[Rfam]
RNA sequence: CCUGCGGUUCCACCCGCAGUCGCCUAUCGGCACCGGCGAGACUGGCAACGGUCUGGUCGGAAGCUGCCGAGAUAAACGCGCUUCCACGAAUGUGGUGCAGGUCGCCGCGAGGCGUCGUGCAGGACUGCAAGCGUCAAUGCGGUUCAAAGC
Numbered sequence: 001c002c003u004g005c006g007g008u009u010c011c012a013c014c015c016g017c018a019g020u021c022g023c024c025u026a027u028c029g030g031c032a033c034c035g036g037c038g039a040g041a042c043u044g045g046c047a048a049c050g051g052u053c054u055g056g057u058c059g060g061a062a063g064c065u066g067c068c069g070a071g072a073u074a075a076a077c078g079c080g081c082u083u084c085c086a087c088g089a090a091u092g093u094g095g096u097g098c099a100g101g102u103c104g105c106c107g108c109g110a111g112g113c114g115u116c117g118u119g120c121a122g123g124a125c126u127g128c129a130a131g132c133g134u135c136a137a138u139g140c141g142g143u144u145c146a147a148a149g150c
Base pairs, nucleotide, nucleotide: 002019003018004017005016006015007014028069029068030067031066032065033060034059035058036057037056039054040053041052042051043050044049084095085094086093087092096121097120098119099118105112106111124143125142126141127140128139129138
Dot-bracket structure: .((((((......))))))........((((((((((.((((((....)))))).)))))....)))))..............((((....))))((((.....((....)).....))))..((((((........)))))).......